[Rfam]
RNA sequence: UUUUUGGGAUAUCGGGCACGGGUCCUCCUCCUCCGGCUGUUCUCCUUCACAGCUGUGACCCAUGUGCCACACAGGCGAUAUCCCGCUUCGUGUGCAAAAAAGCCCGUC
Number, nucleotide and partner (000 for none) at each position: 001u000002u000003u000004u000005u000006g000007g083008g082009a081010u080011a079012u078013c077014g000015g068016g067017c066018a065019c064020g063021g000022g059023u058024c057025c000026u000027c000028c000029u000030c000031c000032u000033c000034c055035g054036g053037c052038u051039g050040u049041u000042c000043u000044c000045c000046u000047u000048c000049a040050c039051a038052g037053c036054u035055g034056u000057g024058a023059c022060c000061c000062a000063u020064g019065u018066g017067c016068c015069a093070c092071a091072c090073a088074g087075g086076c085077g013078a012079u011080a010081u009082c008083c007084c000085g076086c075087u074088u073089c000090g072091u071092g070093u069094g000095c000096a000097a000098a000099a000100a000101a000102g000103c000104c000105c000106g000107u000108c000
A member of the RNA family "IMPDH RNA", 108 nucleotides long. The family's consensus secondary structure is taken from published work.